[Rfam]
Shown here is a 92-nucleotide RNA sequence from Streptomyces poonensis, a member of the family "Selenocysteine transfer RNA".
Nucleotides: 092
Base pairs, nucleotide, nucleotide: 001092002091003090004089005088006087007086009084012027013026015024016023017022028046030044031043032042033041048066049065050064051063052062069083070082071081072080
Number, partner (000 for none) and nucleotide at each position: 001092g002091g003090a004089g005088a006087c007086g008000u009084a010000a011000a012027g013026g014000u015024g016023c017022c018000u019000g020000g021000u022017g023016g024015c025000c026013u027012u028046c029000c030044c031043g032042g033041u034000c035000u036000u037000c038000a039000a040000a041033a042032c043031c044030g045000a046028g047000g048066u049065g050064c051063c052062c053000g054000a055000g056000c057000a058000a059000c060000u061000c062052g063051g064050g065049c066048a067000g068000g069083c070082g071081g072080g073000u074000u075000c076000g077000a078000u079000u080072c081071c082070c083069g084009u085000c086007c087006g088005u089004c090003u091002c092001c

The family's consensus secondary structure is taken from published work. Taxonomically the source falls in Streptomyces (Bacteria, Bacillati, Actinomycetes, Streptomycetaceae).